The record is a 68-nucleotide RNA sequence from Ricinus communis, which matches "MIR164 microRNA precursor family" in Rfam.
Rfam 15.1 lists 201 matches to the family in 125 species.
The match comes from Rfam's covariance-model search (67 bits).
NCBI's taxonomy places the organism under Eukaryota, Mesangiospermae, eudicotyledons, Euphorbiaceae, Ricinus.
The literature on the family includes a 2009 paper in BMC Genomics by Mica et al., "High throughput approaches reveal splicing of primary microRNA transcripts and tissue specific expression of mature microRNAs in Vitis vinifera".
RNA sequence: UGGAGAAGUGGAGCACGUGCAAUUCGGAGAGGGAAAGAAAGGAAUUGCACGUGCCCUGCUUCUCCAGC
Numbered sequence: 001u002g003g004a005g006a007a008g009u010g011g012a013g014c015a016c017g018u019g020c021a022a023u024u025c026g027g028a029g030a031g032g033g034a035a036a037g038a039a040a041g042g043a044a045u046u047g048c049a050c051g052u053g054c055c056c057u058g059c060u061u062c063u064c065c066a067g068c
Stems, first nucleotide, its partner, number of pairs: 001066008010057002013054012